[Rfam]
RNA sequence: AGAGGGAGGUGCAACAUGAACGAAGUGAAUGUUUAUAAAUGCACCGACCGACUUGCCGACGAGCAAAGCGAGGGGGCGUUACCGAAG
Numbered sequence: 001a002g003a004g005g006g007a008g009g010u011g012c013a014a015c016a017u018g019a020a021c022g023a024a025g026u027g028a029a030u031g032u033u034u035a036u037a038a039a040u041g042c043a044c045c046g047a048c049c050g051a052c053u054u055g056c057c058g059a060c061g062a063g064c065a066a067a068g069c070g071a072g073g074g075g076g077c078g079u080u081a082c083c084g085a086a087g
Stems, first nucleotide, its partner, number of pairs: 008045006015031003020026001055077003060072001063069002
RNA: GA-cis RNA